[Rfam]
Nucleotides: 281
Base pairs, nucleotide, nucleotide: 002281003280004279005278007276008275009274010273011272014206016204017203018202019201022062023061024060025059026058027057036050038048039047040046041045067265068264069263071262072261073260074259083095084094085093086092097109098108099107100106113177120171121170126167127166128165129164137161138160139159140158147154148153210249211248212247213246214245
Number, partner (000 for none) and nucleotide at each position: 001000a002281a003280g004279u005278u006000c007276c008275c009274u010273c011272g012000g013000g014206a015000a016204a017203c018202a019201c020000c021000g022062c023061g024060g025059a026058g027057c028000c029000a030000c031000u032000a033000g034000c035000a036050g037000u038048g039047u040046c041045g042000u043000g044000a045041u046040g047039a048038c049000u050036c051000u052000u053000u054000a055000u056000c057027g058026c059025u060024c061023u062022g063000a064000g065000g066000a067265a068264a069263g070000u071262c072261c073260c074259u075000g076000g077000a078000c079000c080000c081000g082000u083095g084094g085093u086092a087000g088000a089000a090000a091000g092086u093085g094084c095083c096000g097109u098108a099107g100106c101000u102000u103000u104000u105000g106100g107099c108098u109097a110000u111000c112000a113177u114000c115000c116000u117000c118000c119000g120171u121170c122000g123000u124000c125000u126167u127166c128165g129164u130000g131000a132000a133000u134000u135000u136000c137161a138160g139159g140158a141000g142000a143000g144000g145000a146000a147154g148153c149000u150000u151000c152000g153148g154147c155000u156000g157000a158140u159139c160138c161137u162000u163000c164129g165128c166127g167126a168000c169000g170121g171120a172000c173000g174000u175000g176000a177113g178000a179000g180000u181000g182000u183000u184000u185000g186000u187000c188000a189000a190000a191000g192000u193000a194000a195000a196000g197000u198000a199000a200000u201019g202018u203017g204016u205000g206014u207000u208000g209000g210249a211248a212247c213246g214245u215000u216000u217000u218000c219000u220000u221000g222000c223000u224000c225000u226000u227000c228000u229000a230000a231000g232000a233000a234000g235000a236000a237000a238000u239000a240000g241000a242000a243000a244000u245214a246213c247212g248211u249210u250000g251000a252000a253000c254000c255000g256000a257000a258000c259074a260073g261072g262071g263069c264068u265067u266000a267000c268000c269000g270000u271000a272011c273010g274009a275008g276007g277000a278005a279004a280003c281002u
This 281-nucleotide sequence from Cyphomyrmex costatus belongs to the Rfam family "RNase MRP". Lineage of the source: Eukaryota > Bilateria > Ecdysozoa > Formicoidea > Cyphomyrmex. Clan: RNaseP clan. By type it is a ribozyme.